[Rfam]
RNA sequence: AGAAGUCGUCGGACGGCAUACCUCCUCCCAUGCCCCCGACAAAUCAGGGCGAUGGUUAUCCUCCUCCCAAUCAUCGCUCGCCUAUCAAGAGCCUGCCGGUCCUCCUCCUCCCCCGGCAGGCUCUUUUG
Number, nucleotide and partner (000 for none) at each position: 001a000002g000003a000004a000005g000006u000007c000008g040009u039010c000011g037012g036013a000014c000015g034016g033017c032018a000019u000020a000021c000022c000023u000024c000025c000026u000027c000028c000029c000030a000031u000032g017033c016034c015035c000036c012037c011038g000039a009040c008041a000042a000043a000044u000045c000046a000047g079048g078049g077050c076051g075052a074053u073054g072055g071056u070057u000058a000059u000060c000061c000062u000063c000064c000065u000066c000067c000068c000069a000070a056071u055072c054073a053074u052075c051076g050077c049078u048079c047080g000081c000082c000083u000084a000085u000086c000087a000088a000089g123090a122091g121092c120093c119094u118095g117096c116097c115098g114099g113100u000101c000102c000103u000104c000105c000106u000107c000108c000109u000110c000111c000112c000113c099114c098115g097116g096117c095118a094119g093120g092121c091122u090123c089124u000125u000126u000127u000128g000
RNA: Alphaproteobacterial ar14